Shown here is a 68-nucleotide RNA from Miscanthus lutarioriparius, a member of the family "Small nucleolar RNA R12". The family has 9 seed sequences and 992 matches in Rfam 15.1. It scores 51 bits against the family's covariance model. Its family is annotated with nucleolus and RNA processing in the Gene Ontology. About the family: snoR12 is a C/D box small nucleolar RNA, which acts as a methylation guide for 25S ribosomal RNA in plants. snoR12 has been alternatively named snoZ44 in Arabidopsis and snoZ131 in rice. The family's consensus secondary structure was predicted with PFOLD. NCBI's taxonomy places the organism under Eukaryota, Streptophyta, Tracheophyta, Liliopsida, Miscanthus. For this family Rfam cites "The high diversity of snoRNAs in plants: identification and comparative study of 120 snoRNA genes from Oryza sativa" (Chen et al., Nucleic Acids Res, 2003).

RNA sequence: UUCUGGAUGAUGAAUAAUUCCGAUUGAUUUUACAAUGUGAUUUUAGCAACCAGCUACUUCUGACAAAA
Dot-bracket structure: ((.((..........................................................)).))